[Rfam]
RNA sequence: CAGUGAUAGUAGACGUGCAGCAUGAGAACCUGCUGCAGGUUCGAGUCGAACGCAGUCAGACAACGUUGUUAGCAACGGCCCGCAGGGCGAGCGAAGCGAGUCAUCCUGUACGACCCAGCA
Numbered sequence: 001c002a003g004u005g006a007u008a009g010u011a012g013a014c015g016u017g018c019a020g021c022a023u024g025a026g027a028a029c030c031u032g033c034u035g036c037a038g039g040u041u042c043g044a045g046u047c048g049a050a051c052g053c054a055g056u057c058a059g060a061c062a063a064c065g066u067u068g069u070u071a072g073c074a075a076c077g078g079c080c081c082g083c084a085g086g087g088c089g090a091g092c093g094a095a096g097c098g099a100g101u102c103a104u105c106c107u108g109u110a111c112g113a114c115c116c117a118g119c120a
Stems, first nucleotide, its partner, number of pairs: 015111006023103001033089001040084001042082002048056001064077005

Background: Rfam assigns this 120-nucleotide sequence from Tatumella morbirosei to the family "RtT RNA". This family represents a bacterial cis-regulatory element known as RtT RNA. The exact function of RtT is unknown although it is thought that it may be involved in changing the cellular response in relation to amino acid starvation. The family's consensus secondary structure is taken from published work. Lineage of the source: Bacteria > Pseudomonadota > Gammaproteobacteria > Erwiniaceae > Tatumella. Rfam classes the family as a cis-regulatory element. On this family, see Bosl and Kersten, Nucleic Acids Res 1991: "A novel RNA product of the tyrT operon of Escherichia coli".